[Rfam]
Nucleotides: 508
Stems, first nucleotide, its partner, number of pairs: 006390004011385002015381001021325001025322001026319002029315001036312003040308003046302004052298001054233002058229001060227005065111004075103001077100002081097005118221001122217001127212001129210002131206001134203002140197001143196002149192002155187005160178002165174003235295003240290005250282001254278001256277003261270002330341003352378003356374002361371003391431007399423001401421001403418003407415001437476001440473001442471005448464005477507002480504003484500002488496001
Number, partner (000 for none) and nucleotide at each position: 001000c002000g003000g004000g005000c006390g007389g008388u009387g010000a011385a012384g013000c014000c015381c016000c017000a018000c019000u020000c021325g022000c023000c024000g025322u026319c027318g028000c029315c030000g031000g032000u033000g034000a035000g036312c037311a038310g039000c040308g041307c042306c043000u044000g045000c046302u047301c048300g049299c050000c051000g052298a053000a054233g055232u056000g057000g058229u059000c060227g061226c062225c063224g064223u065111c066110g067109g068108c069000c070000a071000g072000g073000a074000u075103g076000c077100c078099g079000a080000g081097a082096c083095g084094g085093u086000u087000c088000u089000g090000c091000u092000c093085g094084c095083c096082g097081u098000a099078c100077g101000a102000c103075c104000c105000c106000u107000c108068g109067c110066c111065g112000a113000g114000c115000u116000u117000c118221u119000c120000g121000a122217c123000c124000u125000u126000g127212c128000c129210g130209u131206g132000c133000g134203c135202g136000a137000u138000c139000a140197g141000g142000a143196a144195g145000a146000c147000c148000g149192u150191g151000u152000c153000g154000g155187c156186c157185g158184g159183c160178u161177g162000c163000c164000c165174c166173g167172c168000c169000u170000c171000g172167g173166c174165g175000a176000g177161c178160a179000c180000c181000u182000c183159g184158c185157c186156g187155g188000g189000g190000g191150c192149g193000a194000a195144c196143u197140c198000c199000c200000g201000c202135u203134g204000g205000a206131c207000g208000a209130a210129c211000c212127g213000g214000u215000c216000c217122g218000c219000g220000a221118g222000c223064g224063c225062g226061g227060u228000c229058a230000g231000c232055g233054c234000c235295u236294c237293c238000c239000c240290g241289u242288u243287g244286u245000c246000g247000a248000a249000g250282g251000a252000c253000c254278g255000c256277a257276g258275c259000g260000c261270g262269g263000c264000g265000a266000u267000c268000u269262c270261u271000c272000c273000c274000a275258g276257c277256u278254c279000c280000u281000g282250c283000g284000g285000a286244a287243u288242g289241a290240c291000c292000c293237g294236g295235a296000c297000c298052u299049g300048c301047g302046a303000c304000c305000c306042g307041g308040u309000c310038u311037u312036g313000a314000c315029g316000a317000a318027c319026g320000u321000c322025a323000c324000c325021c326000g327000c328000c329000c330341g331340u332339c333000c334000c335000c336000g337000a338000c339332g340331g341330c342000a343000u344000a345000g346000c347000u348000c349000a350000g351000c352378c353377g354376c355000c356374g357373g358000u359000u360000g361371a362370c363369g364000c365000g366000g367000u368000a369363c370362g371361u372000g373357c374356c375000c376354g377353c378352g379000u380000u381015g382000a383000c384012c385011u386000g387009c388008a389007c390006c391431c392430a393429g394428g395427g396426c397425a398000g399423c400000a401421c402000c403418u404417u405416g406000a407415g408000c409000a410000g411000c412000c413000a414000c415407c416405u417404g418403g419000a420000c421401g422000a423399g424000a425397u426396g427395c428394c429393c430392u431391g432000c433000a434000u435000c436000u437476g438000g439000g440473g441000u442471g443470u444469g445468g446467a447000c448464u449463u450462g451461g452460u453000u454000g455000u456000c457000g458000u459000g460452g461451c462450c463449a464448g465000a466000u467446u468445c469444c470443g471442c472000g473440c474000g475000g476437c477507g478506g479000c480504c481503g482502u483000a484500u485499c486000c487000a488496g489000g490000c491000u492000c493000g494000u495000g496488c497000g498000c499485g500484g501000g502482g503481c504480g505000u506478c507477c508000u
Overview
Shown here is a 508-nucleotide RNA sequence from Actinacidiphila paucisporea, a member of the family "Saccharopolyspora sRNA 350". On this family, see Liu et al., PLoS One 2013: "Prediction and characterization of small non-coding RNAs related to secondary metabolites in Saccharopolyspora erythraea". The organism belongs to Actinacidiphila, within Bacteria.